[Rfam]
RNA sequence: CAAAAUCUUCAGGGCAGAGUGAAAUUCUCGACUGGCGGUAAACUCCGCAAGCCUUCGGGCAGAACCGUUGAAAUUACGGUAGCAACAGUAAAGUCUGGAUGAAAGAAGAUUCCA
Number, nucleotide and partner (000 for none) at each position: 001c000002a000003a000004a111005a110006u109007c108008u107009u106010c105011a000012g000013g000014g000015c000016a000017g029018a028019g027020u000021g000022a000023a000024a000025u000026u000027c019028u018029c017030g000031a094032c093033u084034g083035g048036c047037g046038g045039u000040a000041a000042a000043c082044u081045c038046c037047g036048c035049a000050a000051g060052c059053c058054u000055u000056c000057g000058g053059g052060c051061a000062g000063a000064a080065c079066c078067g077068u076069u000070g000071a000072a000073a000074u000075u000076a068077c067078g066079g065080u064081a044082g043083c034084a033085a000086c097087a096088g095089u000090a000091a000092a000093g032094u031095c088096u087097g086098g000099a000100u000101g000102a000103a000104a000105g010106a009107a008108g007109a006110u005111u004112c000113c000114a000
Rfam assigns this 114-nucleotide RNA from Firmicutes bacterium CAG:536 to the family "FMN riboswitch aptamer (RFN element)".
A search with the family's covariance model found it, with a score of 104 bits.